Notes:
Small nucleolar RNA Z118/Z121/Z120: a 103-nucleotide sequence from Panicum virgatum. The source organism's lineage runs through Eukaryota, Streptophytina, Panicodae, Panicum and Panicum sect. Hiantes.

RNA sequence: UAUUUGCUGUGAUGACUCCUAUUAGGACGGUAUCUGAACGGGGUGACUUUUAAGUGCAUCCCUUCUGAUUAUACCAAAACUGAAUAUGGUUUCUGAGCAAAUC
Numbered sequence: 001u002a003u004u005u006g007c008u009g010u011g012a013u014g015a016c017u018c019c020u021a022u023u024a025g026g027a028c029g030g031u032a033u034c035u036g037a038a039c040g041g042g043g044u045g046a047c048u049u050u051u052a053a054g055u056g057c058a059u060c061c062c063u064u065c066u067g068a069u070u071a072u073a074c075c076a077a078a079a080c081u082g083a084a085u086a087u088g089g090u091u092u093c094u095g096a097g098c099a100a101a102u103c
Base pairs, nucleotide, nucleotide: 002102003101004100005099006098007097038064040062041061042060043059